The record is a 75-nucleotide RNA sequence from Arthrobacter sp. NamB2, which matches "c-di-GMP-I-GGC riboswitch aptamer" in Rfam. Rfam links the family to the GO term cyclic-di-GMP binding. The match comes from Rfam's covariance-model search (61 bits). The base pairs follow the family's consensus structure, which is taken from published work. The source organism's lineage runs through Bacteria, Bacillati, Actinomycetota, Micrococcaceae and Arthrobacter.

[Rfam]
RNA sequence: GGCGUCGAGGGCAAACCCGGCGCGAGCCGGGGACGCAAAGCCACGGGACCCACGCGGUCAGCCGGGCUACCGACC
Numbered sequence: 001g002g003c004g005u006c007g008a009g010g011g012c013a014a015a016c017c018c019g020g021c022g023c024g025a026g027c028c029g030g031g032g033a034c035g036c037a038a039a040g041c042c043a044c045g046g047g048a049c050c051c052a053c054g055c056g057g058u059c060a061g062c063c064g065g066g067c068u069a070c071c072g073a074c075c
Stems, first nucleotide, its partner, number of pairs: 001075001003072002011036002016031006034061001039068004044064003047059003